[Rfam]
The record is a 65-nucleotide RNA from Candidatus Enterococcus wittei, which matches "Enterococcus sRNA 64" in Rfam. A reference for the family is Innocenti et al. (2015), "Whole-genome mapping of 5' RNA ends in bacteria by tagged sequencing: a comprehensive view in Enterococcus faecalis", RNA. Lineage of the source: Bacteria > Bacillota > Lactobacillales > Enterococcaceae > Enterococcus.
RNA sequence: AAAAGCACGCUCCUGUUGGUUGAGUUUCGUCACUUUAAUCUUAUAGGUUUGCGUGCUUUUUGUGU
Number, nucleotide and partner (000 for none) at each position: 001a000002a059003a058004a057005g056006c055007a054008c053009g052010c051011u000012c047013c046014u045015g000016u000017u000018g040019g039020u038021u037022g036023a035024g033025u032026u000027u000028c000029g000030u000031c000032a025033c024034u000035u023036u022037a021038a020039u019040c018041u000042u000043a000044u000045a014046g013047g012048u000049u000050u000051g010052c009053g008054u007055g006056c005057u004058u003059u002060u000061u000062g000063u000064g000065u000